Source information:
This 74-nucleotide RNA sequence from Orycteropus afer belongs to the Rfam family "Small nucleolar RNA SNORD93". Rfam links the family to the GO terms RNA processing and nucleolus. Lineage of the source: Eukaryota > Eumetazoa > Chordata > Euteleostomi > Orycteropus afer.

RNA sequence: UGGUCAAGGAUGAGAAGUCUUAAUCUGAUGGGCAUGCUUCUGCUCUGAUGGAUUAAAGUAUUUACCUGAGGCCA
Numbered sequence: 001u002g003g004u005c006a007a008g009g010a011u012g013a014g015a016a017g018u019c020u021u022a023a024u025c026u027g028a029u030g031g032g033c034a035u036g037c038u039u040c041u042g043c044u045c046u047g048a049u050g051g052a053u054u055a056a057a058g059u060a061u062u063u064a065c066c067u068g069a070g071g072c073c074a
Base pairs, nucleotide, nucleotide: 002073003072004071005070